Annotation:
A member of the RNA family "Purine riboswitch aptamer" from Pelosinus sp. UFO1, 101 nucleotides long.
RNA sequence: UAAACCUCAUGUUAAUAGUCUCGUAUAAUUUUGGGGAUAUGGCCCAGAAGUUUCUACCGGCAGCCGUAAAUUGCCUGUCUACGAGUGAAAGUGUAUCUAGG
Numbered sequence: 001u002a003a004a005c006c007u008c009a010u011g012u013u014a015a016u017a018g019u020c021u022c023g024u025a026u027a028a029u030u031u032u033g034g035g036g037a038u039a040u041g042g043c044c045c046a047g048a049a050g051u052u053u054c055u056a057c058c059g060g061c062a063g064c065c066g067u068a069a070a071u072u073g074c075c076u077g078u079c080u081a082c083g084a085g086u087g088a089a090a091g092u093g094u095a096u097c098u099a100g101g
Stems, first nucleotide, its partner, number of pairs: 020085006029049007058077001059075005
About the family: Riboswitches are metabolite binding domains within certain messenger RNAs that serve as precision sensors for their corresponding targets. It scores 76 bits against the family's covariance model.